RNA sequence: AUAUUCUUUCGGGGCUGGGUGAAAUUCCCAACCGGCAGUAAAUUAAAGCCUGCGACCCAUAUUGCAAAGCGAUAUGGCUGAUCUAGUGAGAAUCUAGAGCCGACAGUUAGAGUCUGGAUGGGAGGAAGAAUAG
Numbered sequence: 001a002u003a004u005u006c007u008u009u010c011g012g013g014g015c016u017g018g019g020u021g022a023a024a025u026u027c028c029c030a031a032c033c034g035g036c037a038g039u040a041a042a043u044u045a046a047a048g049c050c051u052g053c054g055a056c057c058c059a060u061a062u063u064g065c066a067a068a069g070c071g072a073u074a075u076g077g078c079u080g081a082u083c084u085a086g087u088g089a090g091a092a093u094c095u096a097g098a099g100c101c102g103a104c105a106g107u108u109a110g111a112g113u114c115u116g117g118a119u120g121g122g123a124g125g126a127a128g129a130a131u132a133g
Stems, first nucleotide, its partner, number of pairs: 003131008017029003031113002033102002035053004048100002057077002082098005104116003

The record is a 133-nucleotide sequence from Staphylococcus sp. HGB0015, which matches "FMN riboswitch aptamer (RFN element)" in Rfam.